A member of the RNA family "RtT RNA" from Pantoea alhagi, 126 nucleotides long. Its family is annotated with cellular response to amino acid starvation in the Gene Ontology. Pairs were carried over by alignment from the consensus structure, which is taken from published work. About the family: This family represents a bacterial cis-regulatory element known as RtT RNA. The exact function of RtT is unknown although it is thought that it may be involved in changing the cellular response in relation to amino acid starvation. NCBI's taxonomy places the organism under Bacteria, Gammaproteobacteria, Enterobacterales, Erwiniaceae, Pantoea. It is annotated as a cis-regulatory element.
RNA sequence: AUCCGGUGUAAAUCGGCAGGAAGCGAACCUGCAGCAGGUUCGGGUCGAGCGUAAGCGAGACAACGUUGCCAGCGGCAACGGCCCGAAGGGCGAGGCAUAAGCCGAGUCAUCCUGCACGACCCACCA
Numbered sequence: 001a002u003c004c005g006g007u008g009u010a011a012a013u014c015g016g017c018a019g020g021a022a023g024c025g026a027a028c029c030u031g032c033a034g035c036a037g038g039u040u041c042g043g044g045u046c047g048a049g050c051g052u053a054a055g056c057g058a059g060a061c062a063a064c065g066u067u068g069c070c071a072g073c074g075g076c077a078a079c080g081g082c083c084c085g086a087a088g089g090g091c092g093a094g095g096c097a098u099a100a101g102c103c104g105a106g107u108c109a110u111c112c113u114g115c116a117c118g119a120c121c122c123a124c125c126a
Stems, first nucleotide, its partner, number of pairs: 016115005032092001035089001039087004046057002064080006